[Rfam]
RNA sequence: GGUGGCACACACGGGAGCCCGGCGAACCGGGCUGAGAGGCGGGCUGGCACGGCCCGCGACCGUCCGAACCUGAUCCGGGUCAUACCGGCGAAGGGAGCAGAGCAGCUUUGUCAC
Numbered sequence: 001g002g003u004g005g006c007a008c009a010c011a012c013g014g015g016a017g018c019c020c021g022g023c024g025a026a027c028c029g030g031g032c033u034g035a036g037a038g039g040c041g042g043g044c045u046g047g048c049a050c051g052g053c054c055c056g057c058g059a060c061c062g063u064c065c066g067a068a069c070c071u072g073a074u075c076c077g078g079g080u081c082a083u084a085c086c087g088g089c090g091a092a093g094g095g096a097g098c099a100g101a102g103c104a105g106c107u108u109u110g111u112c113a114c
Base pairs, nucleotide, nucleotide: 006102008100011063012062013061014060017032018031019030020029021028039057040056041055042054043053044052045051046050069094070093071092075088076087077086078085